[Rfam]
This 507-nucleotide RNA sequence from Streptomyces smaragdinus belongs to the Rfam family "Saccharopolyspora sRNA 350".
RNA sequence: GUGACCGUGUGGUCCCAGACGGCGCCGUCGUCCAGCAGGGCCGCCUCACCGAAGCGGUCGCCGUCGGCGAGGACCGAGACGCGCACCUCGUCGUCGUACUUGCCGACCGUGGUCCGGUGGAUCCGGCCGUGCGCGAUCAGAUGGAUCUGCCCGGCCGGGGUGCCGCGCUCGGCCAGCACCUCUCCGGCGCGGAAGUCGCGCUGCACGCACCGGUCGGCCAGCGCGGUCAGCACGUCGAGAUCGUCGAAGCCGCGCAGCAGGGCCAGUUCGCCCAGCUCGCGGGGGACGACCCGGACGGUGGCGCCGUCCUGCACGAACUCGAUCCGGCCGUCGCCGACGGUAUGGGUCAGCCGGCGGUUCACCCGGUACGUGCCGCCCUUGACCUCGACCCACGGGAGCGUGCGCAGCAGCCAGCGGGAGGUGAUCCCCUGCAUCUGCGGGACGGUCUUGGUCGUGGUGGCCAGAUUGCGGGCGGCGUCCGUGCUCAGGCUGGACGGCGCGGUGGCG
Numbered sequence: 001g002u003g004a005c006c007g008u009g010u011g012g013u014c015c016c017a018g019a020c021g022g023c024g025c026c027g028u029c030g031u032c033c034a035g036c037a038g039g040g041c042c043g044c045c046u047c048a049c050c051g052a053a054g055c056g057g058u059c060g061c062c063g064u065c066g067g068c069g070a071g072g073a074c075c076g077a078g079a080c081g082c083g084c085a086c087c088u089c090g091u092c093g094u095c096g097u098a099c100u101u102g103c104c105g106a107c108c109g110u111g112g113u114c115c116g117g118u119g120g121a122u123c124c125g126g127c128c129g130u131g132c133g134c135g136a137u138c139a140g141a142u143g144g145a146u147c148u149g150c151c152c153g154g155c156c157g158g159g160g161u162g163c164c165g166c167g168c169u170c171g172g173c174c175a176g177c178a179c180c181u182c183u184c185c186g187g188c189g190c191g192g193a194a195g196u197c198g199c200g201c202u203g204c205a206c207g208c209a210c211c212g213g214u215c216g217g218c219c220a221g222c223g224c225g226g227u228c229a230g231c232a233c234g235u236c237g238a239g240a241u242c243g244u245c246g247a248a249g250c251c252g253c254g255c256a257g258c259a260g261g262g263c264c265a266g267u268u269c270g271c272c273c274a275g276c277u278c279g280c281g282g283g284g285g286a287c288g289a290c291c292c293g294g295a296c297g298g299u300g301g302c303g304c305c306g307u308c309c310u311g312c313a314c315g316a317a318c319u320c321g322a323u324c325c326g327g328c329c330g331u332c333g334c335c336g337a338c339g340g341u342a343u344g345g346g347u348c349a350g351c352c353g354g355c356g357g358u359u360c361a362c363c364c365g366g367u368a369c370g371u372g373c374c375g376c377c378c379u380u381g382a383c384c385u386c387g388a389c390c391c392a393c394g395g396g397a398g399c400g401u402g403c404g405c406a407g408c409a410g411c412c413a414g415c416g417g418g419a420g421g422u423g424a425u426c427c428c429c430u431g432c433a434u435c436u437g438c439g440g441g442a443c444g445g446u447c448u449u450g451g452u453c454g455u456g457g458u459g460g461c462c463a464g465a466u467u468g469c470g471g472g473c474g475g476c477g478u479c480c481g482u483g484c485u486c487a488g489g490c491u492g493g494a495c496g497g498c499g500c501g502g503u504g505g506c507g
Base pairs, nucleotide, nucleotide: 007389008388011385012384015381018328021325022324026321027320031316032315035312036311037310038309039308040307041306047303049301050300051299054233058229060227061226062225063224064223068111069110071108078103080102081101083099085094086093117222118221120219122217123216127212129210130209131206133204134203135202140197143196150191154188155187156186157185158184159183160182161178162177165174234296235295236294241289242288243287244286245285250282251281252280253279254278256277257276258275260271262269330341331340332339353377354376355375356374357373360372361371362370391431392430394428395427396426397425399423400422401421403418405416407415437476438475440473443470444469448464449463450462451461452460477506478505480501481500482499486497488495
The family's RNA type in Rfam is antisense RNA. Pairs were carried over by alignment from the consensus structure, which was predicted with RNAfold. For this family Rfam cites "Prediction and characterization of small non-coding RNAs related to secondary metabolites in Saccharopolyspora erythraea" (Liu et al., PLoS One, 2013). The family has 2 seed sequences and 1,170 matches in Rfam 15.1.